[Rfam]
RNA sequence: AGCCCACACGCAGGAUCGCAUAUUGAAGCAUCACAGAUCUACGAUGAGGCAUUCAUUUGACCUCAACCGAAACAUAAUUGCAAUGCUUUAGGGAAAGUCCUCGGACCUCACGGCAGAAAGUGCCACCAAUAAUUCUACUGGUCUUUCUGAGUCCACAAGGGAUGGUCAUUUCGUUUUGGGCCAAGACCUAAAGAAUUUCUUUGGGAAUGCUCCUCAAUGAUCUGACCUUGUGGCUCAGUGAUUGUCAUAGUUACAGUCAUGCGAUUGCGGUUGUUCCUUCACGGGGAUAAUUGUAACUCAACGGGGCUCACUCGCGUACGUGGUC
Dot-bracket structure: .(.((((((((..((((((...(((((((((...................................................)))))))))....[[.[[[[.........((((.....))))((((.(......).))))....(((.....((((((.....(((.........(((................((((...))))....)))........)))))))))....)))......................)))))).((((((((((......)))))))))).........]]]]]].....))))..)))).)

Rfam assigns this 325-nucleotide RNA from Mortierella sp. AD011 to the family "RNase MRP".